[Rfam]
RNA sequence: AUGCCGGGUCGACCGAACGCAUCGGUGGGGAUGGAGGACCCAAGCACGGUGGGACGACCAGAGUAGUGCGGUCGGCCCUUGGGGUGAAGCCGUUGAGACGGCCGGGCAACCUUCGCCUGCCCGAACCCGACAGGUCAUCCUUCACAGGCGGCUGACGAAGGGUUG
Numbered sequence: 001a002u003g004c005c006g007g008g009u010c011g012a013c014c015g016a017a018c019g020c021a022u023c024g025g026u027g028g029g030g031a032u033g034g035a036g037g038a039c040c041c042a043a044g045c046a047c048g049g050u051g052g053g054a055c056g057a058c059c060a061g062a063g064u065a066g067u068g069c070g071g072u073c074g075g076c077c078c079u080u081g082g083g084g085u086g087a088a089g090c091c092g093u094u095g096a097g098a099c100g101g102c103c104g105g106g107c108a109a110c111c112u113u114c115g116c117c118u119g120c121c122c123g124a125a126c127c128c129g130a131c132a133g134g135u136c137a138u139c140c141u142u143c144a145c146a147g148g149c150g151g152c153u154g155a156c157g158a159a160g161g162g163u164u165g
Base pairs, nucleotide, nucleotide: 002150003149004148005147009030010029032144033143034142035141036140041081042080043079044078082128083127084126090101091100092099093098104122105121106120107119
A member of the RNA family "c-di-AMP riboswitch aptamer (ydaO/yuaA leader)" from Streptomyces sp. ISL-11, 165 nucleotides long. Gene Ontology terms of the family: cyclic-di-AMP binding and regulation of gene expression. From the family's description: This family represents a conserved RNA structure found upstream of the ydaO and yuaA genes in Bacillus subtilis and related genes in other bacteria.